Rfam assigns this 54-nucleotide RNA sequence from Pseudomonas fulva to the family "terC RNA". By type it is a cis-regulatory element. Taxonomically the source falls in Pseudomonas fulva (Bacteria, Pseudomonadati, Pseudomonadota, Pseudomonadaceae).
Nucleotides: 054
Base pairs, nucleotide, nucleotide: 006048007047009045010044011043012042023036024035025034026033027032
Number, partner (000 for none) and nucleotide at each position: 001000c002000u003000g004000c005000g006048a007047c008000g009045c010044c011043g012042g013000g014000c015000c016000c017000c018000u019000c020000u021000g022000a023036c024035a025034g026033c027032u028000a029000c030000c031000c032027a033026g034025c035024u036023g037000c038000c039000a040000u041000g042012u043011c044010g045009g046000a047007g048006u049000u050000g051000c052000a053000g054000u